[Rfam]
RNA: CRISPR RNA direct repeat element
RNA sequence: GUUUCCAUCCUCUAAGAGGUCUUAUUUUAAU
Numbered sequence: 001g002u003u004u005c006c007a008u009c010c011u012c013u014a015a016g017a018g019g020u021c022u023u024a025u026u027u028u029a030a031u
Stems, first nucleotide, its partner, number of pairs: 009019004